Bacillaceae-1 RNA: a 68-nucleotide sequence from Falsibacillus albus. By type it is a small RNA. NCBI's taxonomy places the organism under Bacteria, Bacillati, Bacillota, Bacilli, Falsibacillus.
RNA sequence: UUGGGCGGAUGUUCGAUUAAGUUCGGCACAUCCGUGUGCCAGCAUCGAACGACCUCACUUCGAGUGAG
Numbered sequence: 001u002u003g004g005g006c007g008g009a010u011g012u013u014c015g016a017u018u019a020a021g022u023u024c025g026g027c028a029c030a031u032c033c034g035u036g037u038g039c040c041a042g043c044a045u046c047g048a049a050c051g052a053c054c055u056c057a058c059u060u061c062g063a064g065u066g067a068g
Stems, first nucleotide, its partner, number of pairs: 011050007025040005054068005